The record is a 109-nucleotide RNA from Aotus nancymaae, which matches "Y RNA" in Rfam. Rfam 15.1 lists 26,986 matches to the family in 650 species. NCBI's taxonomy places the organism under Eukaryota, Deuterostomia, Gnathostomata, Mammalia, Aotus.
RNA sequence: GGCUGAUCCAAAGGUAGCAAGUUACCUCAAUUGACUGUUCAUAGUUACAGAUGGACCUCCUUGUUCUAUUCUUUCCCUCCUUCCUGCCACUGCACGUGAUUAGUCUUUA
Numbered sequence: 001g002g003c004u005g006a007u008c009c010a011a012a013g014g015u016a017g018c019a020a021g022u023u024a025c026c027u028c029a030a031u032u033g034a035c036u037g038u039u040c041a042u043a044g045u046u047a048c049a050g051a052u053g054g055a056c057c058u059c060c061u062u063g064u065u066c067u068a069u070u071c072u073u074u075c076c077c078u079c080c081u082u083c084c085u086g087c088c089a090c091u092g093c094a095c096g097u098g099a100u101u102a103g104u105c106u107u108u109a
Stems, first nucleotide, its partner, number of pairs: 001105008010097001014093002017087003021083001041069001043067002
By type it is a non-coding RNA gene.